[Rfam]
RNA sequence: CAAACGGCCCUUUUCAGGGCCACCAAUUGUGUUGAAAAGAACUUAU
Numbered sequence: 001c002a003a004a005c006g007g008c009c010c011u012u013u014u015c016a017g018g019g020c021c022a023c024c025a026a027u028u029g030u031g032u033u034g035a036a037a038a039g040a041a042c043u044u045a046u
Stems, first nucleotide, its partner, number of pairs: 006021006
RNA: Histone 3' UTR stem-loop
Organism: Anopheles gambiae